[Rfam]
RNA sequence: AAAGAUCGAUAUCGAGGGAGUACGAUGCCCUAGAGAAUUCCUGCUCAUGUGGGCAGCGUGUACCGUGUACAGUCUGAAGUCCCCUCACCUCAACAAACUGCCACUCCGACGUGCAGGUAUCAUUCU
Numbered sequence: 001a002a003a004g005a006u007c008g009a010u011a012u013c014g015a016g017g018g019a020g021u022a023c024g025a026u027g028c029c030c031u032a033g034a035g036a037a038u039u040c041c042u043g044c045u046c047a048u049g050u051g052g053g054c055a056g057c058g059u060g061u062a063c064c065g066u067g068u069a070c071a072g073u074c075u076g077a078a079g080u081c082c083c084c085u086c087a088c089c090u091c092a093a094c095a096a097a098c099u100g101c102c103a104c105u106c107c108g109a110c111g112u113g114c115a116g117g118u119a120u121c122a123u124u125c126u
Base pairs, nucleotide, nucleotide: 002126004124005123008121009120010119011118012117013116018030020028021027022026033081034080040053041052042051043050044049054076055075056074059071060070061069062068063067
RNA: EFASI RNA